Record summary
Rfam assigns this 67-nucleotide RNA from Cnephaeus nilssonii to the family "mir-9256 microRNA precursor family".
RNA sequence: AUAUACACUGAGUGAACAGAUUAUUAUGAUCUUUGAACACAUAAUAAUCUGUCCACUCAGUGUAUAA
Numbered sequence: 001a002u003a004u005a006c007a008c009u010g011a012g013u014g015a016a017c018a019g020a021u022u023a024u025u026a027u028g029a030u031c032u033u034u035g036a037a038c039a040c041a042u043a044a045u046a047a048u049c050u051g052u053c054c055a056c057u058c059a060g061u062g063u064a065u066a067a
Base pairs, nucleotide, nucleotide: 004064005063006062007061008060009059010058011057012056013055014054016052017051019049020048021047022046023045024044025043026042027041028040